[Rfam]
RNA sequence: GCUCGGUUGCCGUGGUUGCAGGCCCGGCCCGCCCGCUCCCUGGCUGACAGCAAGACUUAGAGCGGAGGGAAGUGGGCCGGUUGGUCGGUCGGGAACGAGG
Numbered sequence: 001g002c003u004c005g006g007u008u009g010c011c012g013u014g015g016u017u018g019c020a021g022g023c024c025c026g027g028c029c030c031g032c033c034c035g036c037u038c039c040c041u042g043g044c045u046g047a048c049a050g051c052a053a054g055a056c057u058u059a060g061a062g063c064g065g066a067g068g069g070a071a072g073u074g075g076g077c078c079g080g081u082u083g084g085u086c087g088g089u090c091g092g093g094a095a096c097g098a099g100g
Base pairs, nucleotide, nucleotide: 002099003098004097005096007095008094010092011091012090013087014086015085016084018081019080021078022077023076024075025072028069029068030067033065034064035063036062037061040054043051044050045049
The family of this 100-nucleotide RNA sequence from Prolemur simus is "mir-658 microRNA precursor family". Pairs were carried over by alignment from the consensus structure, which was predicted with RNAalifold. Rfam links the family to the GO terms RISC complex and miRNA-mediated post-transcriptional gene silencing. NCBI's taxonomy places the organism under Eukaryota, Deuterostomia, Craniata, Vertebrata, Prolemur. The match comes from Rfam's covariance-model search (96 bits).